[Rfam]
Source information: atpB RNA: a 132-nucleotide RNA from Corynebacterium ureicelerivorans. The source organism's lineage runs through Bacteria, Bacillati, Actinomycetota, Actinomycetes and Corynebacterium. The match comes from Rfam's covariance-model search (122 bits).

RNA sequence: CUGUCCCCGCGGAAGCAGAUGUGCGACGGAGUCCGCCGCGGAGGCAGUUGUUGUUGAAGACGUCCAUCGCACCGCGCGCCGGCACUGACGGUGCGCGGCCCGAGAACGGGAGAGAACGCUGAGCGUUACAAC
Numbered sequence: 001c002u003g004u005c006c007c008c009g010c011g012g013a014a015g016c017a018g019a020u021g022u023g024c025g026a027c028g029g030a031g032u033c034c035g036c037c038g039c040g041g042a043g044g045c046a047g048u049u050g051u052u053g054u055u056g057a058a059g060a061c062g063u064c065c066a067u068c069g070c071a072c073c074g075c076g077c078g079c080c081g082g083c084a085c086u087g088a089c090g091g092u093g094c095g096c097g098g099c100c101c102g103a104g105a106a107c108g109g110g111a112g113a114g115a116a117c118g119c120u121g122a123g124c125g126u127u128a129c130a131a132c
Base pairs, nucleotide, nucleotide: 001047002046003045004044005043007041008040009039010038011037012036072098073097074096075095076094077093078092079091080090081089